[Rfam]
RNA sequence: CGGGGUGUGGCGCAGCUUGGUAGCGCGCGUGCUUUGGGUGCACGAGGCCGUGGGUUCGAAUCCCGCCACCCCGA
Numbered sequence: 001c002g003g004g005g006u007g008u009g010g011c012g013c014a015g016c017u018u019g020g021u022a023g024c025g026c027g028c029g030u031g032c033u034u035u036g037g038g039u040g041c042a043c044g045a046g047g048c049c050g051u052g053g054g055u056u057c058g059a060a061u062c063c064c065g066c067c068a069c070c071c072c073g074a
Stems, first nucleotide, its partner, number of pairs: 001073007010026004028044005050066005
RNA: tRNA
Organism: Actinomadura craniellae